[Rfam]
RNA sequence: UGCGCUGUAUGGUAUUUGCACCCAGCAGUAUCUUCCUGAUGGGGUGUUCAAAAAGCAGUGCUACAGUAUUUCAUCAGCUGGCAUUGUUGGUUUUCCUGCAUGUGUGCUGGUUAAACUUGGUAUUUCUGUUGAAAUAAGUA
Numbered sequence: 001u002g003c004g005c006u007g008u009a010u011g012g013u014a015u016u017u018g019c020a021c022c023c024a025g026c027a028g029u030a031u032c033u034u035c036c037u038g039a040u041g042g043g044g045u046g047u048u049c050a051a052a053a054a055g056c057a058g059u060g061c062u063a064c065a066g067u068a069u070u071u072c073a074u075c076a077g078c079u080g081g082c083a084u085u086g087u088u089g090g091u092u093u094u095c096c097u098g099c100a101u102g103u104g105u106g107c108u109g110g111u112u113a114a115a116c117u118u119g120g121u122a123u124u125u126c127u128g129u130u131g132a133a134a135u136a137a138g139u140a
Stems, first nucleotide, its partner, number of pairs: 002061006015054003018047006024040001026038003064128003068124001070122001071120003080108005

Rfam assigns this 140-nucleotide RNA from Ardeotis kori to the family "Small nucleolar RNA SNORA8". Pairs were carried over by alignment from the consensus structure, which was predicted with RNAfold. By type it is an H/ACA-box small nucleolar RNA. Its Rfam clan is "SNORA8 clan".